[Rfam]
RNA: FGF-1 internal ribosome entry site (IRES)
RNA sequence: AACUUCAGCGGAAUGAGGGCACGGCCUCCUUUUGGUGAAGGACACUCCCUUGUGAUGGAGAAUGGGAACUCCCUUCCUCCCGCAGCCGCCUGCCUGCAGCGCUCCUUCUAACUCCAUGUGGACACUGUAGGCUGCUGCAGCUGGGUCACCCGGGAAAGAAAGUGCUUCAGAGC
Numbered sequence: 001a002a003c004u005u006c007a008g009c010g011g012a013a014u015g016a017g018g019g020c021a022c023g024g025c026c027u028c029c030u031u032u033u034g035g036u037g038a039a040g041g042a043c044a045c046u047c048c049c050u051u052g053u054g055a056u057g058g059a060g061a062a063u064g065g066g067a068a069c070u071c072c073c074u075u076c077c078u079c080c081c082g083c084a085g086c087c088g089c090c091u092g093c094c095u096g097c098a099g100c101g102c103u104c105c106u107u108c109u110a111a112c113u114c115c116a117u118g119u120g121g122a123c124a125c126u127g128u129a130g131g132c133u134g135c136u137g138c139a140g141c142u143g144g145g146u147c148a149c150c151c152g153g154g155a156a157a158g159a160a161a162g163u164g165c166u167u168c169a170g171a172g173c
Stems, first nucleotide, its partner, number of pairs: 003172003008168001010166002014159001016050004025041003029037001051155001053153001058079001060076003064073003085147001086143001088141002094137001096135005105130001